[Rfam]
RNA sequence: GCUGUACCCUCUCCGUUUUACCCCUGUGUAGCCUUAGUGAUUUCACUGAACCGACCGCCCUUUGCGGUCGGUUUUUUU
Numbered sequence: 001g002c003u004g005u006a007c008c009c010u011c012u013c014c015g016u017u018u019u020a021c022c023c024c025u026g027u028g029u030a031g032c033c034u035u036a037g038u039g040a041u042u043u044c045a046c047u048g049a050a051c052c053g054a055c056c057g058c059c060c061u062u063u064g065c066g067g068u069c070g071g072u073u074u075u076u077u078u
Stems, first nucleotide, its partner, number of pairs: 013031001015029002034049006051071008